[Rfam]
RNA sequence: UGACUAGCGGAGGCUAUAAAGAG
Number, nucleotide and partner (000 for none) at each position: 001u000002g000003a000004c000005u016006a015007g014008c013009g000010g000011a000012g000013g008014c007015u006016a005017u000018a000019a000020a000021g000022a000023g000

Shown here is a 23-nucleotide RNA sequence from Lentivirus humimdef1, a member of the family "HIV-1 stem-loop 3 Psi packaging signal".
The family's consensus secondary structure is taken from published work.
Rfam 15.1 lists 25 matches to the family in 22 species.
A reference for the family is Yu et al. (2008), "MS3D structural elucidation of the HIV-1 packaging signal", Proc Natl Acad Sci U S A.